[Rfam]
RNA sequence: AGAUGAGGUAGAGGAGCGAAAAACAUUAGUACAAUAUGUGAGAAUGACACCAAUGACCAUAUUGCAAAGGGCUUUUCGCCGAAGUAAAUGAAUAAGUCAUGAUUCAUUUGCUGGUAUUACUUUGAACAAGGGUAAUACUGUCAUUAUAGAGUUUUCUAUAAUGGAGGGCUACUGAUCGG
Numbered sequence: 001a002g003a004u005g006a007g008g009u010a011g012a013g014g015a016g017c018g019a020a021a022a023a024c025a026u027u028a029g030u031a032c033a034a035u036a037u038g039u040g041a042g043a044a045u046g047a048c049a050c051c052a053a054u055g056a057c058c059a060u061a062u063u064g065c066a067a068a069g070g071g072c073u074u075u076u077c078g079c080c081g082a083a084g085u086a087a088a089u090g091a092a093u094a095a096g097u098c099a100u101g102a103u104u105c106a107u108u109u110g111c112u113g114g115u116a117u118u119a120c121u122u123u124g125a126a127c128a129a130g131g132g133u134a135a136u137a138c139u140g141u142c143a144u145u146a147u148a149g150a151g152u153u154u155u156c157u158a159u160a161a162u163g164g165a166g167g168g169c170u171a172c173u174g175a176u177c178g179g
Stems, first nucleotide, its partner, number of pairs: 007173005016079007024071001032064007083112011113139011141164007